[Rfam]
RNA sequence: UGGGCUCGCCGCGACUGGCGCGGAUGGAUCCGACCAUCGGGAAGCGGCGAACCGGCCUCGGUCGACUCUGGGGCCUGGACCGGCCUCGACCGCCUGGGGGCCUCGG
Numbered sequence: 001u002g003g004g005c006u007c008g009c010c011g012c013g014a015c016u017g018g019c020g021c022g023g024a025u026g027g028a029u030c031c032g033a034c035c036a037u038c039g040g041g042a043a044g045c046g047g048c049g050a051a052c053c054g055g056c057c058u059c060g061g062u063c064g065a066c067u068c069u070g071g072g073g074c075c076u077g078g079a080c081c082g083g084c085c086u087c088g089a090c091c092g093c094c095u096g097g098g099g100g101c102c103u104c105g106g
Stems, first nucleotide, its partner, number of pairs: 003053002006050007015041002017094004024037004083101005
The family of this 106-nucleotide RNA sequence from Actinopolymorpha singaporensis is "ZMP/ZTP riboswitch aptamer (pfl RNA motif)". A search with the family's covariance model found it, with a score of 42 bits. The organism belongs to Actinopolymorpha, within Bacteria. The family's consensus secondary structure is taken from published work.